[Rfam]
RNA sequence: GUGGAUGGAAGCUCAUUGCCGAGGUCACGUGCUGGGUGCGUUGCGUCACUCCGUAGAGCUUCGGGGAAGGUCUGAGACGAGAGCCAGACGGUCGUCCUUGCAGGAUGUCACCCGAGUCGGGUGAGUGAGUUCCCAGCCAUGGAGGGGCCCUUGCGCGGAGGGGAGAGCGCAGGAGACGCGGGCGCAGUUCGGCAGGUGCUGAUUGCGAGGGGUGCAACAAUUACCCCCGAUCAAACCCCCCGGGCUCCCCGCAGAUGCAGCUCCCCUCCCAGGGCUUUGGAAAAGACUCACGGCUGGCAACACAGAGUCCAAUGGCUGAGGUGAGACACGGCUGCGGUCUCAUAACCCAAUUCAGACUACUCUCCUUCCAC
Numbered sequence: 001g002u003g004g005a006u007g008g009a010a011g012c013u014c015a016u017u018g019c020c021g022a023g024g025u026c027a028c029g030u031g032c033u034g035g036g037u038g039c040g041u042u043g044c045g046u047c048a049c050u051c052c053g054u055a056g057a058g059c060u061u062c063g064g065g066g067a068a069g070g071u072c073u074g075a076g077a078c079g080a081g082a083g084c085c086a087g088a089c090g091g092u093c094g095u096c097c098u099u100g101c102a103g104g105a106u107g108u109c110a111c112c113c114g115a116g117u118c119g120g121g122u123g124a125g126u127g128a129g130u131u132c133c134c135a136g137c138c139a140u141g142g143a144g145g146g147g148c149c150c151u152u153g154c155g156c157g158g159a160g161g162g163g164a165g166a167g168c169g170c171a172g173g174a175g176a177c178g179c180g181g182g183c184g185c186a187g188u189u190c191g192g193c194a195g196g197u198g199c200u201g202a203u204u205g206c207g208a209g210g211g212g213u214g215c216a217a218c219a220a221u222u223a224c225c226c227c228c229g230a231u232c233a234a235a236c237c238c239c240c241c242g243g244g245c246u247c248c249c250c251g252c253a254g255a256u257g258c259a260g261c262u263c264c265c266c267u268c269c270c271a272g273g274g275c276u277u278u279g280g281a282a283a284a285g286a287c288u289c290a291c292g293g294c295u296g297g298c299a300a301c302a303c304a305g306a307g308u309c310c311a312a313u314g315g316c317u318g319a320g321g322u323g324a325g326a327c328a329c330g331g332c333u334g335c336g337g338u339c340u341c342a343u344a345a346c347c348c349a350a351u352u353c354a355g356a357c358u359a360c361u362c363u364c365c366u367u368c369c370a371c
Stems, first nucleotide, its partner, number of pairs: 001371004007365003012320004017315001020063005034051005039045001072355005082295004093107005108124006125291007146276006321343007